The family of this 134-nucleotide sequence from Echinops telfairi is "Small nucleolar RNA SNORA70". The literature on the family includes a 2000 paper in IUBMB Life by Charette and Gray, "Pseudouridine in RNA: what, where, how, and why". Its family is annotated with nucleolus and RNA processing in the Gene Ontology. Rfam's curators put it in the seed alignment. The base pairs follow the family's consensus structure, which was predicted with PFOLD. It is annotated as an H/ACA-box small nucleolar RNA. NCBI's taxonomy places the organism under Eukaryota, Chordata, Euteleostomi, Dipnotetrapodomorpha, Echinops.
[Rfam]
RNA sequence: CUGCAGCCAAUUAAGCCGACCGUCCUCCUCCUCGUGGGGGCCGGUGUGCAAUGGCUGCAUACAGCAAGCCUCCUUGGUAGUGUAUGCAGCCUAUUGGUAUGUAUAGGCUGCCCUAAGGGACCUUGGAGACAACC
Numbered sequence: 001c002u003g004c005a006g007c008c009a010a011u012u013a014a015g016c017c018g019a020c021c022g023u024c025c026u027c028c029u030c031c032u033c034g035u036g037g038g039g040g041c042c043g044g045u046g047u048g049c050a051a052u053g054g055c056u057g058c059a060u061a062c063a064g065c066a067a068g069c070c071u072c073c074u075u076g077g078u079a080g081u082g083u084a085u086g087c088a089g090c091c092u093a094u095u096g097g098u099a100u101g102u103a104u105a106g107g108c109u110g111c112c113c114u115a116a117g118g119g120a121c122c123u124u125g126g127a128g129a130c131a132a133c134c
Base pairs, nucleotide, nucleotide: 002050003049004048005047019045020044021043022042025040026039027038028037076122077121078120087110088109089108090107091106092105